[Rfam]
RNA sequence: GCCGAAAGAGGAAAAGUUAUAACGGUUAUGUUUUUAAAUGAUAGUCGUAAGCGUAUAGCUUUUCCCCUUUUAGU
Numbered sequence: 001g002c003c004g005a006a007a008g009a010g011g012a013a014a015a016g017u018u019a020u021a022a023c024g025g026u027u028a029u030g031u032u033u034u035u036a037a038a039u040g041a042u043a044g045u046c047g048u049a050a051g052c053g054u055a056u057a058g059c060u061u062u063u064c065c066c067c068u069u070u071u072a073g074u
Base pairs, nucleotide, nucleotide: 004071005070006069007068010065011064013062014061017058018057019056020055021054026050027049028048029047030046
A member of the RNA family "mir-965 microRNA precursor family" from Cinara cedri, 74 nucleotides long.